[Rfam]
RNA: Lysine riboswitch aptamer
RNA sequence: AGUGAGGAUAGAGGCGCAAAGAUCAUUAGUAUACAAUUCGAGGAGAAUGAGAUCCAGUGACGAUUGUAGAAAGGGGUAUUUGCCGAAGCGGAAAGAAUCUCAUGUUCUUGAAGCUGGUUCUGCUAUUGAAUAAAUACAGAACUGUCAUAUAGGAAACUAUAUGGAGGGCUAUCGCACGG
Numbered sequence: 001a002g003u004g005a006g007g008a009u010a011g012a013g014g015c016g017c018a019a020a021g022a023u024c025a026u027u028a029g030u031a032u033a034c035a036a037u038u039c040g041a042g043g044a045g046a047a048u049g050a051g052a053u054c055c056a057g058u059g060a061c062g063a064u065u066g067u068a069g070a071a072a073g074g075g076g077u078a079u080u081u082g083c084c085g086a087a088g089c090g091g092a093a094a095g096a097a098u099c100u101c102a103u104g105u106u107c108u109u110g111a112a113g114c115u116g117g118u119u120c121u122g123c124u125a126u127u128g129a130a131u132a133a134a135u136a137c138a139g140a141a142c143u144g145u146c147a148u149a150u151a152g153g154a155a156a157c158u159a160u161a162u163g164g165a166g167g168g169c170u171a172u173c174g175c176a177c178g179g
Base pairs, nucleotide, nucleotide: 007173008172009171010170011169016083017082018081019080020079022077023076024075032068033067034066035065036064037063038062087115088114089113093109094108095107096106097105098104116143117142118141119140120139121138122137124136125135126134127133145164146163147162148161149160150159151158
Dot-bracket structure: ......(((((....(((((.(((.......(((((((.......................)))))))......))).)))))...(((...((((((.....))))))...)))(((((((.((((.....))))))))))).(((((((......)))))))....)))))......